[Rfam]
RNA sequence: CCUGCCGAGGGGCGCUGCGACCGUGUGGAUCCCACCACGGCCAGGCUCGGCACGGUUACAUGCAAACGGCGCCCGUUACUG
Numbered sequence: 001c002c003u004g005c006c007g008a009g010g011g012g013c014g015c016u017g018c019g020a021c022c023g024u025g026u027g028g029a030u031c032c033c034a035c036c037a038c039g040g041c042c043a044g045g046c047u048c049g050g051c052a053c054g055g056u057u058a059c060a061u062g063c064a065a066a067c068g069g070c071g072c073c074c075g076u077u078a079c080u081g
Base pairs, nucleotide, nucleotide: 003052004051005050006049007048008047021040022039023038024037025036
The record is an 81-nucleotide RNA sequence from Thermomonas carbonis, which matches "SAH (S-adenosyl-L-homocysteine) riboswitch aptamer" in Rfam. The family's consensus secondary structure is taken from published work.